The family of this 82-nucleotide sequence from Pangasianodon hypophthalmus is "mir-221 microRNA precursor family".
RNA sequence: CCCCUCAGUUGCUCAGUAGUCAGUGUAGGUCCUGUCUGCCUGUCAGCAGCUACAUCUGGCUACUGGGUCUCUAAUGGGCUUC
Number, nucleotide and partner (000 for none) at each position: 001c000002c000003c000004c000005u000006c000007a000008g000009u000010u000011g000012c000013u066014c065015a064016g063017u062018a061019g000020u059021c058022a057023g055024u054025g053026u052027a051028g050029g000030u000031c000032c049033u048034g047035u046036c000037u000038g000039c000040c000041u000042g000043u000044c000045a000046g035047c034048a033049g032050c028051u027052a026053c025054a024055u023056c000057u022058g021059g020060c000061u018062a017063c016064u015065g014066g013067g000068u000069c000070u000071c000072u000073a000074a000075u000076g000077g000078g000079c000080u000081u000082c000
The organism belongs to Pangasianodon, within Eukaryota. The base pairs follow the family's consensus structure, which was predicted with RNAalifold. For this family Rfam cites "MicroRNA profile of Marek's disease virus-transformed T-cell line MSB-1: predominance of virus-encoded microRNAs" (Yao et al., J Virol, 2008).